[Rfam]
RNA sequence: CGAGAUCUUGUAUUUCGCGUAGGGCCUUCUAUAAGACCCGUAAACCAAUUUUUGGGAACCCCAGUAAGAUGCUGGGGUU
Number, nucleotide and partner (000 for none) at each position: 001c000002g000003a000004g000005a000006u000007c000008u000009u000010g000011u000012a000013u000014u000015u000016c000017g000018c000019g000020u000021a000022g039023g038024g037025c000026c035027u034028u033029c000030u000031a000032u000033a028034a027035g026036a000037c024038c023039c022040g000041u000042a000043a000044a000045c000046c000047a000048a000049u000050u000051u000052u000053u000054g000055g000056g000057a000058a078059c077060c076061c075062c074063a073064g072065u071066a070067a000068g000069a000070u066071g065072c064073u063074g062075g061076g060077g059078u058079u000